Rfam assigns this 207-nucleotide RNA sequence from Paraclostridium benzoelyticum to the family "raiA RNA". Rfam classes the family as a riboswitch.
RNA sequence: AUGUGUUAGGUCUGUGGUUGAAAGUUCAUGCCAGUUGCAGGCGAAAGGACCCACGUAAGUUAAUUCUAAAAAUGGGAUUAAUGAUCAUGGUGCAGCUUAGAAGUAAGACCUGCCGAUAUUAAAAUCGAGAGAGUCAGUAGUGCGGCGAACCCAAGCGAAAUCUCCAGCAGGCGAGUGUGGGGGCAAAGACCAGGUCAGCUAAAAUAU
Numbered sequence: 001a002u003g004u005g006u007u008a009g010g011u012c013u014g015u016g017g018u019u020g021a022a023a024g025u026u027c028a029u030g031c032c033a034g035u036u037g038c039a040g041g042c043g044a045a046a047g048g049a050c051c052c053a054c055g056u057a058a059g060u061u062a063a064u065u066c067u068a069a070a071a072a073u074g075g076g077a078u079u080a081a082u083g084a085u086c087a088u089g090g091u092g093c094a095g096c097u098u099a100g101a102a103g104u105a106a107g108a109c110c111u112g113c114c115g116a117u118a119u120u121a122a123a124a125u126c127g128a129g130a131g132a133g134u135c136a137g138u139a140g141u142g143c144g145g146c147g148a149a150c151c152c153a154a155g156c157g158a159a160a161u162c163u164c165c166a167g168c169a170g171g172c173g174a175g176u177g178u179g180g181g182g183g184c185a186a187a188g189a190c191c192a193g194g195u196c197a198g199c200u201a202a203a204a205u206a207u
Base pairs, nucleotide, nucleotide: 001207002206003205004204006202007201008200009199012198013197014196015192016191017190018189019188028178029177030176031041033097034096035095036094037093038092039091050090051089055085058082060080062078064076065075066074088185109171110170111169112168113167114127115126116125117124131164132163133162140156141155